[Rfam]
Rfam assigns this 67-nucleotide RNA from Collichthys lucidus to the family "miR-430 microRNA precursor family". On this family, see Giraldez et al., Science 2005: "MicroRNAs regulate brain morphogenesis in zebrafish". Clan: mir-290 clan. Taxonomically the source falls in Collichthys (Eukaryota, Deuterostomia, Vertebrata, Teleostomi). The family has 32 seed sequences and 24,817 matches in Rfam 15.1.

RNA sequence: AAUGUUACCCAAACAAAAGCGCUGACUGAGUUCAAUGCAGUAAGUGCUUCUUGUUGGGGUUGUUGCU
Numbered sequence: 001a002a003u004g005u006u007a008c009c010c011a012a013a014c015a016a017a018a019g020c021g022c023u024g025a026c027u028g029a030g031u032u033c034a035a036u037g038c039a040g041u042a043a044g045u046g047c048u049u050c051u052u053g054u055u056g057g058g059g060u061u062g063u064u065g066c067u
Stems, first nucleotide, its partner, number of pairs: 004063002007060004013054004018048006025041003